[Rfam]
RNA sequence: UAACCGCCUCCGAAAGGAGGCGCUGAACAUGCAGAAGUCAGCAGAGGCCAUAUUACCUGAGUAGAGGACGCUCGAAUAGGGAAGGGC
Numbered sequence: 001u002a003a004c005c006g007c008c009u010c011c012g013a014a015a016g017g018a019g020g021c022g023c024u025g026a027a028c029a030u031g032c033a034g035a036a037g038u039c040a041g042c043a044g045a046g047g048c049c050a051u052a053u054u055a056c057c058u059g060a061g062u063a064g065a066g067g068a069c070g071c072u073c074g075a076a077u078a079g080g081g082a083a084g085g086g087c
Stems, first nucleotide, its partner, number of pairs: 001025002005022007038045002047087003056080003059073003
RNA: Group II catalytic intron D1-D4-1
Organism: Brevibacillus panacihumi